A member of the RNA family "terC RNA" from Agrobacterium fabrum, 60 nucleotides long. NCBI's taxonomy places the organism under Bacteria, Alphaproteobacteria, Rhizobiaceae, Agrobacterium, Agrobacterium fabrum.
RNA sequence: CCGCUGGUCCGGGCCCCUCUGGUGAAAGUUACGGCGCUUUUGCGAUGUCGGACCUCUAAA
Numbered sequence: 001c002c003g004c005u006g007g008u009c010c011g012g013g014c015c016c017c018u019c020u021g022g023u024g025a026a027a028g029u030u031a032c033g034g035c036g037c038u039u040u041u042g043c044g045a046u047g048u049c050g051g052a053c054c055u056c057u058a059a060a
Base pairs, nucleotide, nucleotide: 006054007053008052009051010050011049012048022043023042024041025040026039027038028037029036